The family of this 481-nucleotide part of an RNA from Daucus carota is "Archaeal large subunit ribosomal RNA". On this family, see Yusupov et al., Science 2001: "Crystal structure of the ribosome at 5.5 A resolution". The organism belongs to Daucus carota, within Eukaryota.

Nucleotides: 481
Base pairs, nucleotide, nucleotide: 001420002419003418004417005416006415011023013021015020026134027133028132029131030130031129036122037121039120041119042118043117044116046114047113054105055104060100061099064096066094067093068092073089074088075087076086077085078084139193140192141191198209199208200207213385214384215383216382217381218380219379223375224374225373232372234371235370236369237368238367239366255345256344257343259342260341261340262339263338264337266335267334275330276329277328278327279326280303281302282301286297287296304308309324313322314321386411387410388404389403391401392400421476425471426470427469428468430466431465432464442459443458444457445456446455447454448453
Number, partner (000 for none) and nucleotide at each position: 001420c002419c003418c004417u005416c006415c007000g008000a009000a010000g011023u012000u013021u014000c015020c016000c017000u018000c019000a020015g021013a022000u023011a024000g025000c026134u027133g028132g029131a030130g031129c032000c033000c034000g035000g036122g037121u038000g039120c040000g041119g042118u043117u044116c045000u046114u047113c048000g049000g050000g051000u052000a053000a054105a055104g056000c057000c058000a059000u060100g061099a062000u063000u064096a065000g066094a067093g068092g069000c070000a071000u072000c073089g074088g075087g076086g077085g078084c079000g080000c081000a082000a083000c084078g085077c086076c087075c088074u089073c090000g091000a092068c093067c094066u095000a096064u097000u098000c099061u100060c101000a102000a103000a104055c105054u106000u107000c108000a109000a110000a111000u112000a113047g114046g115000u116044g117043g118042a119041c120039g121037g122036c123000g124000c125000g126000g127000c128000u129031g130030c131029u132028u133027c134026a135000u136000u137000g138000a139193g140192c141191c142000u143000g144000c145000c146000a147000c148000g149000g150000a151000a152000u153000c154000a155000a156000g157000a158000g159000c160000u161000c162000c163000a164000a165000g166000u167000g168000g169000g170000c171000c172000a173000u174000u175000u176000u177000u178000g179000g180000u181000a182000a183000g184000c185000a186000g187000a188000a189000c190000u191141g192140g193139c194000g195000a196000u197000g198209c199208g200207g201000g202000a203000u204000g205000a206000a207200c208199c209198g210000g211000a212000a213385g214384c215383c216382g217381g218380g219379u220000u221000a222000c223375g224374g225373u226000g227000c228000c229000c230000a231000a232372c233000u234371g235370c236369g237368c238367g239366c240000u241000a242000c243000c244000a245000g246000a247000a248000c249000c250000c251000a252000c253000a254000a255345g256344g257343g258000u259342g260341u261340u262339g263338g264337u265000c266335g267334a268000u269000u270000a271000g272000a273000c274000a275330g276329c277328a278327g279326g280303c281302g282301g283000u284000g285000g286297u287296c288000a289000u290000g291000a292000a293000g294000u295000c296287g297286a298000a299000a300000u301282c302281c303280g304308c305000u306000a307000a308304g309324g310000a311000g312000u313322g314321u315000g316000u317000a318000a319000c320000a321314a322313c323000u324309c325000a326279c327278c328277u329276g330275c331000c332000g333000a334267u335266c336000a337264a338263c339262u340261a341260g342259c343257c344256c345255c346000g347000a348000a349000a350000a351000a352000u353000g354000g355000a356000u357000g358000g359000c360000g361000c362000u363000u364000a365000a366239g367238c368237g369236c370235g371234c372232g373225a374224c375223c376000u377000a378000u379219a380218c381217c382216c383215g384214g385213c386411c387410g388404u389403c390000g391401g392400g393000g394000c395000a396000a397000g398000u399000u400392c401391c402000a403389g404388g405000c406000c407000c408000g409000a410387u411386g412000a413000g414000u415006g416005g417004a418003g419002g420001g421476c422000g423000c424000u425471g426470c427469g428468g429000u430466c431465g432464c433000u434000g435000c436000g437000c438000a439000a440000a441000c442459c443458u444457u445456a446455g447454g448453c449000g450000u451000a452000a453448g454447c455446c456445u457444g458443g459442g460000c461000g462000g463000a464432g465431c466430g467000u468428c469427c470426g471425u472000u473000u474000g475000u476421g477000c478000g479000g480000a481000u